The record is a 135-nucleotide RNA from Calditerricola satsumensis, which matches "PyrR binding site" in Rfam. Rfam classes the family as a cis-regulatory element. The base pairs follow the family's consensus structure, which is taken from published work. Lineage of the source: Bacteria > Bacillota > Bacilli > Bacillaceae > Calditerricola.
RNA sequence: GAACCCUUUUAAUUCAGUCCCGUGAGGCUGAAAAGGGGUUCGGCGGAGCGAAGCACGCCCUGCUUGCGCAUGGCGUGCCCCUCGCGGCAUGCUCGUCGCAACCUCUUUGCGCCUCGCGCAGAGAGGUUUUUUUGU
Numbered sequence: 001g002a003a004c005c006c007u008u009u010u011a012a013u014u015c016a017g018u019c020c021c022g023u024g025a026g027g028c029u030g031a032a033a034a035g036g037g038g039u040u041c042g043g044c045g046g047a048g049c050g051a052a053g054c055a056c057g058c059c060c061u062g063c064u065u066g067c068g069c070a071u072g073g074c075g076u077g078c079c080c081c082u083c084g085c086g087g088c089a090u091g092c093u094c095g096u097c098g099c100a101a102c103c104u105c106u107u108u109g110c111g112c113c114u115c116g117c118g119c120a121g122a123g124a125g126g127u128u129u130u131u132u133u134g135u
Stems, first nucleotide, its partner, number of pairs: 004037006014031006050081001053078007061070003098130001100128012
A reference for the family is Bonner et al. (2001), "Molecular recognition of pyr mRNA by the Bacillus subtilis attenuation regulatory protein PyrR", Nucleic Acids Res. A search with the family's covariance model found it, with a score of 66 bits.